[Rfam]
The record is a 384-nucleotide part of an RNA from Parasphaerochaeta coccoides, which matches "Bacterial large subunit ribosomal RNA" in Rfam.
The source organism's lineage runs through Bacteria, Spirochaetota, Spirochaetia, Spirochaetales and Parasphaerochaeta coccoides.
Clan: LSU clan.
Pairs were carried over by alignment from the consensus structure, which is taken from published work.
RNA sequence: GAAAAGACGGGUGAGAUCCCCGUCCGCCGGAAGCCUAAGGUUUCCAGGGUAAAGGUAAUCUGCCCAAGGGUCAGUCGGCCCCUAAGGCGAGGGCGAAGGCCGUAGCCGAUGGGAAACGGGUGAACAUUCCCGUACCUUCCCAUGCACCGACGGGAUGACGCAUAGAGCGAAGCGCGGCCGGAGAACGGUAGUUCCGGUCCAAGCACGGAGCUGUUGAGGACGCCAGGCAAAUCCGGCGUCCGAGGGGAAGUGCGAAUGCGAGCCGACCUACGGGGAGGCGAAGCGCGUGGAGCUGUCGUGCCGGGAAACAAUCCCUAAGGAUAUGCAUGGGGGGACCGUACCAGAGACCGACACAGGUGGGCGAGCUGAGAAUGCGAAGGCGCA
Numbered sequence: 001g002a003a004a005a006g007a008c009g010g011g012u013g014a015g016a017u018c019c020c021c022g023u024c025c026g027c028c029g030g031a032a033g034c035c036u037a038a039g040g041u042u043u044c045c046a047g048g049g050u051a052a053a054g055g056u057a058a059u060c061u062g063c064c065c066a067a068g069g070g071u072c073a074g075u076c077g078g079c080c081c082c083u084a085a086g087g088c089g090a091g092g093g094c095g096a097a098g099g100c101c102g103u104a105g106c107c108g109a110u111g112g113g114a115a116a117c118g119g120g121u122g123a124a125c126a127u128u129c130c131c132g133u134a135c136c137u138u139c140c141c142a143u144g145c146a147c148c149g150a151c152g153g154g155a156u157g158a159c160g161c162a163u164a165g166a167g168c169g170a171a172g173c174g175c176g177g178c179c180g181g182a183g184a185a186c187g188g189u190a191g192u193u194c195c196g197g198u199c200c201a202a203g204c205a206c207g208g209a210g211c212u213g214u215u216g217a218g219g220a221c222g223c224c225a226g227g228c229a230a231a232u233c234c235g236g237c238g239u240c241c242g243a244g245g246g247g248a249a250g251u252g253c254g255a256a257u258g259c260g261a262g263c264c265g266a267c268c269u270a271c272g273g274g275g276a277g278g279c280g281a282a283g284c285g286c287g288u289g290g291a292g293c294u295g296u297c298g299u300g301c302c303g304g305g306a307a308a309c310a311a312u313c314c315c316u317a318a319g320g321a322u323a324u325g326c327a328u329g330g331g332g333g334g335a336c337c338g339u340a341c342c343a344g345a346g347a348c349c350g351a352c353a354c355a356g357g358u359g360g361g362c363g364a365g366c367u368g369a370g371a372a373u374g375c376g377a378a379g380g381c382g383c384a
Base pairs, nucleotide, nucleotide: 006024007023008022009021010020011019025382026381027380028379033362034361035360036359039342040341044069045068047065048064049063053061054060076338077337078336081112082111086107087106088105090103092101093100094099116133117132118131119130120129136334137333138332139331140330141329142328143327144326145325146324147320148319152315153314154313155312156311160301161300162299163298166294167293168292172288173287174286175285176284177198178197179196180195181194182193199258203253204252205251206250211246212245218241219240220239221238222237223236224235226234227233262279263278264277348357349356365375366374